[Rfam]
RNA sequence: AGCCAUAAGGGUUAGUAUUACACCCUUAUGGCUAAUGUGUAAUAAUUACA
Numbered sequence: 001a002g003c004c005a006u007a008a009g010g011g012u013u014a015g016u017a018u019u020a021c022a023c024c025c026u027u028a029u030g031g032c033u034a035a036u037g038u039g040u041a042a043u044a045a046u047u048a049c050a
Base pairs, nucleotide, nucleotide: 001033002032003031004030005029006028007027008026009025010024011023

ssNA-helicase RNA: a 50-nucleotide RNA sequence. Rfam classes the family as a small RNA. The family's consensus secondary structure is taken from published work. The sequence is in the family's curated seed alignment.